[Rfam]
RNA sequence: AGAUGAGAGAAACACCCCGCUCACAGGAAACUGUGGGCGACACCGGUACGGAGCAUCCCCAGCCCCGUUCCGGUCGCGCCCUGGCGCACACCCCCGGAGCUUCUGGUUCCGGAGUUCCUCACCGAUCGGA
Numbered sequence: 001a002g003a004u005g006a007g008a009g010a011a012a013c014a015c016c017c018c019g020c021u022c023a024c025a026g027g028a029a030a031c032u033g034u035g036g037g038c039g040a041c042a043c044c045g046g047u048a049c050g051g052a053g054c055a056u057c058c059c060c061a062g063c064c065c066c067g068u069u070c071c072g073g074u075c076g077c078g079c080c081c082u083g084g085c086g087c088a089c090a091c092c093c094c095c096g097g098a099g100c101u102u103c104u105g106g107u108u109c110c111g112g113a114g115u116u117c118c119u120c121a122c123c124g125a126u127c128g129g130a
Stems, first nucleotide, its partner, number of pairs: 004121004009117002018039009042074005049067003053063002076089001078087002094112007122129002
A member of the RNA family "Streptomyces RNA 5676" from Streptomyces boluensis, 130 nucleotides long. Rfam classes the family as a small RNA. A search with the family's covariance model found it, with a score of 112 bits. NCBI's taxonomy places the organism under Bacteria, Bacillati, Kitasatosporales, Streptomycetaceae, Streptomyces. Identified by deep sequencing of transcriptome at the end of exponential growth phase. Appears longer on northern blot than sequencing transcript. This indicates processing step. Streptomyces specific.